RNA sequence: AGAUACCAGGGGCAAAAGGUUAUAAAACACGUUGUGCUUGCACAUAAGUGUUUUAUAACCUUUAUGACCCGCCCAAAUAUGAGGAUAAAAGUAGGACGACGCCCCACGAUAUCCGAAUUUGGGGCAGAAUUGUGAGGUGCUGCGUGCCAGUGGCACGCGUUUAGCACCGACCGAAGUGAAACGUAGAUGCGGAGCACGAAACAAUUUGUCAGGUAUCU
Numbered sequence: 001a002g003a004u005a006c007c008a009g010g011g012g013c014a015a016a017a018g019g020u021u022a023u024a025a026a027a028c029a030c031g032u033u034g035u036g037c038u039u040g041c042a043c044a045u046a047a048g049u050g051u052u053u054u055a056u057a058a059c060c061u062u063u064a065u066g067a068c069c070c071g072c073c074c075a076a077a078u079a080u081g082a083g084g085a086u087a088a089a090a091g092u093a094g095g096a097c098g099a100c101g102c103c104c105c106a107c108g109a110u111a112u113c114c115g116a117a118u119u120u121g122g123g124g125c126a127g128a129a130u131u132g133u134g135a136g137g138u139g140c141u142g143c144g145u146g147c148c149a150g151u152g153g154c155a156c157g158c159g160u161u162u163a164g165c166a167c168c169g170a171c172c173g174a175a176g177u178g179a180a181a182c183g184u185a186g187a188u189g190c191g192g193a194g195c196a197c198g199a200a201a202c203a204a205u206u207u208g209u210c211a212g213g214u215a216u217c218u
Stems, first nucleotide, its partner, number of pairs: 001218007010069002013066001016062015033044004073124002077120001079118002083114004091107002094104002097101001127207007137197004
Description
The family of this 218-nucleotide RNA sequence from Firmicutes bacterium CAG:646 is "Clostridiales-1 RNA". NCBI's taxonomy places the organism under Bacteria, Bacillati, Bacillota. Pairs were carried over by alignment from the consensus structure, which is taken from published work.